[Rfam]
Nucleotides: 084
Stems, first nucleotide, its partner, number of pairs: 012073009021063006029055002
Number, partner (000 for none) and nucleotide at each position: 001000u002000c003000a004000g005000c006000u007000a008000u009000u010000u011000g012073u013072c014071c015070u016069u017068a018067u019066c020065a021063u022062u023061c024060u025059u026058c027000u028000g029055u030054c031000g032000g033000g034000u035000u036000g037000a038000u039000a040000a041000u042000a043000g044000u045000u046000g047000a048000a049000u050000u051000a052000c053000c054030g055029g056000a057000c058026g059025g060024a061023g062022a063021a064000c065020u066019g067018a068017u069016a070015a071014g072013g073012g074000c075000c076000u077000a078000u079000g080000g081000u082000u083000g084000g